[Rfam]
Nucleotides: 080
Base pairs, nucleotide, nucleotide: 001080002079003078004077005076008073009072010071011070012069013068014067015066016065017064018063023058024057025056026054027053028052029051030050031049032048
Number, partner (000 for none) and nucleotide at each position: 001080u002079u003078g004077g005076a006000a007000a008073a009072a010071a011070u012069u013068a014067a015066u016065g017064u018063a019000g020000g021000a022000c023058c024057u025056a026054c027053a028052c029051u030050u031049u032048g033000g034000a035000a036000a037000u038000g039000g040000a041000a042000c043000c044000u045000a046000u047000a048032u049031a050030a051029a052028g053027u054026g055000g056025u057024g058023g059000a060000a061000c062000a063018u064017a065016c066015a067014u068013u069012g070011a071010u072009u073008u074000c075000a076005u077004c078003c079002a080001g
This 80-nucleotide sequence from Medicago truncatula belongs to the Rfam family "MIR5269 microRNA precursor family". Taxonomically the source falls in Medicago (Eukaryota, Magnoliopsida, Gunneridae, Pentapetalae). The family's consensus secondary structure was predicted with RNAalifold. Rfam 15.1 lists 389 matches to the family in 6 species. Gene Ontology terms of the family: RISC complex and miRNA-mediated post-transcriptional gene silencing.